[Rfam]
RNA: FMN riboswitch aptamer (RFN element)
RNA sequence: GAGCUUCUUCGGGGCAGGGUGAAAUUCCCUACUGGCGGUACAGCCCGCGACCCUUCCGCACCGCAAUGGGCAGGAAGGCUGAGCCGGUGAGACAAAAGUCAAUUCCGGCGCCAACAGUAUAGUCUGGAUGAGAGAGGAAAGCU
Numbered sequence: 001g002a003g004c005u006u007c008u009u010c011g012g013g014g015c016a017g018g019g020u021g022a023a024a025u026u027c028c029c030u031a032c033u034g035g036c037g038g039u040a041c042a043g044c045c046c047g048c049g050a051c052c053c054u055u056c057c058g059c060a061c062c063g064c065a066a067u068g069g070g071c072a073g074g075a076a077g078g079c080u081g082a083g084c085c086g087g088u089g090a091g092a093c094a095a096a097a098g099u100c101a102a103u104u105c106c107g108g109c110g111c112c113a114a115c116a117g118u119a120u121a122g123u124c125u126g127g128a129u130g131a132g133a134g135a136g137g138a139a140a141g142c143u
Stems, first nucleotide, its partner, number of pairs: 005139006017029003031123002033113002035048004043111002052078005083109005115126003